[Rfam]
RNA: Insect-Specific Flavivirus 3' UTR repeats Ra and Rb elements
Organism: Quang Binh virus
RNA sequence: CGCAAGGAAGGAUGCGAUGAAAACGCUUGUCCUUGGGAGUUGACGACUCUCCGCCCCCAGUCCCCAGGUCAGGGUAUGACCCCGUGGUGUUGAAAGGACACUAA
Numbered sequence: 001c002g003c004a005a006g007g008a009a010g011g012a013u014g015c016g017a018u019g020a021a022a023a024c025g026c027u028u029g030u031c032c033u034u035g036g037g038a039g040u041u042g043a044c045g046a047c048u049c050u051c052c053g054c055c056c057c058c059a060g061u062c063c064c065c066a067g068g069u070c071a072g073g074g075u076a077u078g079a080c081c082c083c084g085u086g087g088u089g090u091u092g093a094a095a096g097g098a099c100a101c102u103a104a
Base pairs, nucleotide, nucleotide: 002061003060006057007056008034009033010032011031012030015025016024035051036050037049038048039047040046067081068080069079070078071077085103086102087101088100089099090098091097